[Rfam]
RNA sequence: UUCUGUUAAUCAUGUCAUUAUACUUUGGUUAUUAGCCUUACAUUAUUGAGAUACCCCUUUACUUUUAUUACCGGCAUCUGUGCCGGUUUUUUUU
Numbered sequence: 001u002u003c004u005g006u007u008a009a010u011c012a013u014g015u016c017a018u019u020a021u022a023c024u025u026u027g028g029u030u031a032u033u034a035g036c037c038u039u040a041c042a043u044u045a046u047u048g049a050g051a052u053a054c055c056c057c058u059u060u061a062c063u064u065u066u067a068u069u070a071c072c073g074g075c076a077u078c079u080g081u082g083c084c085g086g087u088u089u090u091u092u093u094u
Stems, first nucleotide, its partner, number of pairs: 013035001017032002020029002070087006
Rfam assigns this 94-nucleotide RNA from Citrobacter rodentium to the family "rseX Hfq binding RNA". By type it is a small RNA.